A member of the RNA family "Small Cajal body specific RNA 6" from Atractosteus spatula, 268 nucleotides long. For this family Rfam cites "Cajal body-specific small nuclear RNAs: a novel class of 2'-O-methylation and pseudouridylation guide RNAs" (Darzacq et al., EMBO J, 2002). Pairs were carried over by alignment from the consensus structure, which is taken from published work. Taxonomically the source falls in Atractosteus (Eukaryota, Eumetazoa, Euteleostomi, Lepisosteidae). About the family: U88 is small Cajal body specific RNA (scaRNA). scaRNAs are a novel class of small nuclear RNAs which localise to the Cajal bodies. U88 is found associated with both fibrillarin and Gar1p and co-localises with coilin in Cajal bodies.
RNA sequence: GGUCUGUGAUGUGAAGUAAAAGGUCUGAUGCCCACUGUCCUGUCCCAGCAACCCUUUGGCUCCCAGAAGCCCCUGCUCUUCUCCCACCAUGCUCUAGAUAUGCAUGUUGAGCACAGGUGCUUCUGACAGCCUGGAUGUCUUCUUGACCAUUUCACCCGGAGACCAUGGUGUUGGACACAUGAAUGACAUCCAACACCUCAAAGCAUUAAGGAGCUUUUGGGUCUGUUGUGAGGACUGGAGCCUGAUCUCAAGUUUUCAAGCUGAGACC
Numbered sequence: 001g002g003u004c005u006g007u008g009a010u011g012u013g014a015a016g017u018a019a020a021a022g023g024u025c026u027g028a029u030g031c032c033c034a035c036u037g038u039c040c041u042g043u044c045c046c047a048g049c050a051a052c053c054c055u056u057u058g059g060c061u062c063c064c065a066g067a068a069g070c071c072c073c074u075g076c077u078c079u080u081c082u083c084c085c086a087c088c089a090u091g092c093u094c095u096a097g098a099u100a101u102g103c104a105u106g107u108u109g110a111g112c113a114c115a116g117g118u119g120c121u122u123c124u125g126a127c128a129g130c131c132u133g134g135a136u137g138u139c140u141u142c143u144u145g146a147c148c149a150u151u152u153c154a155c156c157c158g159g160a161g162a163c164c165a166u167g168g169u170g171u172u173g174g175a176c177a178c179a180u181g182a183a184u185g186a187c188a189u190c191c192a193a194c195a196c197c198u199c200a201a202a203g204c205a206u207u208a209a210g211g212a213g214c215u216u217u218u219g220g221g222u223c224u225g226u227u228g229u230g231a232g233g234a235c236u237g238g239a240g241c242c243u244g245a246u247c248u249c250a251a252g253u254u255u256u257c258a259a260g261c262u263g264a265g266a267c268c
Stems, first nucleotide, its partner, number of pairs: 001268004037246003042223001044221005060213004064125007083111001085109002088106005133191007150175003154171002156168003